[Rfam]
RNA sequence: GCCGGUCCUCGGUAGUGGCUCCCGGGCACGCAUCGGUUCCCCGCUCCGCGGGAACCUGGACCCGAGGGCUUCGAUCGAGCACCGGU
Numbered sequence: 001g002c003c004g005g006u007c008c009u010c011g012g013u014a015g016u017g018g019c020u021c022c023c024g025g026g027c028a029c030g031c032a033u034c035g036g037u038u039c040c041c042c043g044c045u046c047c048g049c050g051g052g053a054a055c056c057u058g059g060a061c062c063c064g065a066g067g068g069c070u071u072c073g074a075u076c077g078a079g080c081a082c083c084g085g086u
Stems, first nucleotide, its partner, number of pairs: 001086006009078005017070005023064004
A member of the RNA family "Actino-pnp RNA" from Blastococcus sp. CT_GayMR20, 86 nucleotides long.
The family's consensus secondary structure is taken from published work.
NCBI's taxonomy places the organism under Bacteria, Actinomycetota, Actinomycetes, Geodermatophilaceae, Blastococcus.
A search with the family's covariance model found it, with a score of 52 bits.